RNA sequence: GCUUAUAUAUUUCAACAUAAAGGGUUGAAGUUUCUACAGUCAAACCAAUUUGACUACUAUAAGU
Numbered sequence: 001g002c003u004u005a006u007a008u009a010u011u012u013c014a015a016c017a018u019a020a021a022g023g024g025u026u027g028a029a030g031u032u033u034c035u036a037c038a039g040u041c042a043a044a045c046c047a048a049u050u051u052g053a054c055u056a057c058u059a060u061a062a063g064u
Base pairs, nucleotide, nucleotide: 001064002063003062004061005060006059007058008036011029012028013027014026015025016024022046023045030037038055039054040053041052042051043050044049